Notes: SAM (S-adenosyl methionine) riboswitch aptamer: a 114-nucleotide RNA sequence from Nocardia jinanensis. Rfam 15.1 lists 2,360 matches to the family in 1,305 species. SAM-IV is a mRNA element that regulates gene expression via direct sensing of S-adenosylmethionine (SAM or AdoMet). SAM-IV riboswitches share conserved nucleotide positions with the previously described SAM-I riboswitches sequence analysis and molecular recognition experiments suggest that SAM-I and SAM-IV riboswitches share similar ligand binding sites, but have different scaffolds. Its family is annotated with S-adenosylmethionine metabolic process and regulation of gene expression in the Gene Ontology. The match comes from Rfam's covariance-model search (112 bits).

[Rfam]
RNA sequence: GGUCAUGAGUGCCAGCGUGAAACCCCGGUUUGCUGGCCGGCAACCCUCCUCCGCGGUGGGGUGCCCCGGGUGACGACCCGGCCGCCGCUCGACCGAGCGCGGCAAGCGCGGACU
Numbered sequence: 001g002g003u004c005a006u007g008a009g010u011g012c013c014a015g016c017g018u019g020a021a022a023c024c025c026c027g028g029u030u031u032g033c034u035g036g037c038c039g040g041c042a043a044c045c046c047u048c049c050u051c052c053g054c055g056g057u058g059g060g061g062u063g064c065c066c067c068g069g070g071u072g073a074c075g076a077c078c079c080g081g082c083c084g085c086c087g088c089u090c091g092a093c094c095g096a097g098c099g100c101g102g103c104a105a106g107c108g109c110g111g112a113c114u
Stems, first nucleotide, its partner, number of pairs: 001078004009038001011037006021030002039065003044061003048056002081103004086099005
Dot-bracket structure: ((((....(.((((((....((......)).)))))))(((..(((.((.....))..))).))).........))))..((((.(((((....)))))))))...........